[Rfam]
RNA sequence: GCACUUGAUAGAGGAUGCGAACGAGAAGAGUAUCCAGUAGCAACGCCGGCAAGCGGCAGCUGGGGAAAGGCAAGUUCGCCGAAGUUCUAUCGCGGUUGCCGCCGCGGUAAUGCUGGGCCCUCGCCGAACAGGCGACGGACUGUCACAUGACUUAUGUGGAGCGCUAUCAUCGGU
Numbered sequence: 001g002c003a004c005u006u007g008a009u010a011g012a013g014g015a016u017g018c019g020a021a022c023g024a025g026a027a028g029a030g031u032a033u034c035c036a037g038u039a040g041c042a043a044c045g046c047c048g049g050c051a052a053g054c055g056g057c058a059g060c061u062g063g064g065g066a067a068a069g070g071c072a073a074g075u076u077c078g079c080c081g082a083a084g085u086u087c088u089a090u091c092g093c094g095g096u097u098g099c100c101g102c103c104g105c106g107g108u109a110a111u112g113c114u115g116g117g118c119c120c121u122c123g124c125c126g127a128a129c130a131g132g133c134g135a136c137g138g139a140c141u142g143u144c145a146c147a148u149g150a151c152u153u154a155u156g157u158g159g160a161g162c163g164c165u166a167u168c169a170u171c172g173g174u
Stems, first nucleotide, its partner, number of pairs: 006169006017079006025071001033064006040057001083114003088109007115141002118138002121135005143159007
RNA: Lysine riboswitch aptamer
Organism: Ruminococcus sp. CAG:177